[Rfam]
RNA: PyrR binding site
RNA sequence: AGCCCUUUUAAAUGCAGUCCAGUGAGGCUGACAAAGGGGAAUUGAGCCGAUUGCUAUUUUAUCGGUAUUUCCAUACCCUCUUUGUACCAUCAUGGACAAAAGAGGGUUUUUUAU
Numbered sequence: 001a002g003c004c005c006u007u008u009u010a011a012a013u014g015c016a017g018u019c020c021a022g023u024g025a026g027g028c029u030g031a032c033a034a035a036g037g038g039g040a041a042u043u044g045a046g047c048c049g050a051u052u053g054c055u056a057u058u059u060u061a062u063c064g065g066u067a068u069u070u071c072c073a074u075a076c077c078c079u080c081u082u083u084g085u086a087c088c089a090u091c092a093u094g095g096a097c098a099a100a101a102g103a104g105g106g107u108u109u110u111u112u113a114u
Stems, first nucleotide, its partner, number of pairs: 003039006015030005044068001046066006053059001073109001075107009